[Rfam]
The record is a 118-nucleotide sequence from Pelodiscus sinensis, which matches "Small nucleolar RNA SNORA40" in Rfam. By type it is an H/ACA-box small nucleolar RNA.

RNA sequence: UCUGGUUUUUGUUUUUUGUUGUGGACAAAAACUUGGAGUAAGUGCUAAGAAUAAACCCUUCUCUUGCAACCCACAGCUCAUCAAUAUGUGAGCUGUGCUACUUCUGAGAAGAGACAAU
Numbered sequence: 001u002c003u004g005g006u007u008u009u010u011g012u013u014u015u016u017u018g019u020u021g022u023g024g025a026c027a028a029a030a031a032c033u034u035g036g037a038g039u040a041a042g043u044g045c046u047a048a049g050a051a052u053a054a055a056c057c058c059u060u061c062u063c064u065u066g067c068a069a070c071c072c073a074c075a076g077c078u079c080a081u082c083a084a085u086a087u088g089u090g091a092g093c094u095g096u097g098c099u100a101c102u103u104c105u106g107a108g109a110a111g112a113g114a115c116a117a118u
Stems, first nucleotide, its partner, number of pairs: 002036001005032008017023001058113003062109005072097010
From the family's description: The snoRNA ACA 40 belongs to the H/ACA family of snoRNAs and guides the pseudouridylation of 28S rRNA subunit at position U4565. NB This family has a high threshold value to exclude a large number of closely related sequences that do not appear to have conserved H and ACA boxes, and may be pseudogenes. The family has 28 seed sequences and 2,550 matches in Rfam 15.1.